[Rfam]
The family of this 193-nucleotide RNA sequence from Toxoplasma gondii is "U2 spliceosomal RNA". A reference for the family is Zwieb (1997), "The uRNA database", Nucleic Acids Res. The family is grouped with related families in Rfam's "U2 clan". The base pairs follow the family's consensus structure, which is taken from published work. The sequence is in the family's curated seed alignment.
RNA sequence: AUACCUUCUCGGCCUUUUGGCUAUGAUCAAGUGUAGUAUCUGUUCUUAUCAGUGUGACAACUGAUAUGGGUCCAACUGGACCCAAUUAUGUCACAUCAAUUUUUGUUUGGGGAGGUUAGGUUUCUGAGCUUGCUCAGGCCUUCCUCAAGCGUCGCCUUCCUCUUGCACUCCCGGGAAGAGCGGUGCACCCUUU
Numbered sequence: 001a002u003a004c005c006u007u008c009u010c011g012g013c014c015u016u017u018u019g020g021c022u023a024u025g026a027u028c029a030a031g032u033g034u035a036g037u038a039u040c041u042g043u044u045c046u047u048a049u050c051a052g053u054g055u056g057a058c059a060a061c062u063g064a065u066a067u068g069g070g071u072c073c074a075a076c077u078g079g080a081c082c083c084a085a086u087u088a089u090g091u092c093a094c095a096u097c098a099a100u101u102u103u104u105g106u107u108u109g110g111g112g113a114g115g116u117u118a119g120g121u122u123u124c125u126g127a128g129c130u131u132g133c134u135c136a137g138g139c140c141u142u143c144c145u146c147a148a149g150c151g152u153c154g155c156c157u158u159c160c161u162c163u164u165g166c167a168c169u170c171c172c173g174g175g176a177a178g179a180g181c182g183g184u185g186c187a188c189c190c191u192u193u
Base pairs, nucleotide, nucleotide: 007026008025011022012021013020014019047066048065049064050063051062052061068083069082070081071080072079073078112146113145114144115143118141119140120139125136126135127134128133149186150185151184152183153182154181156178157177158176159175160174161173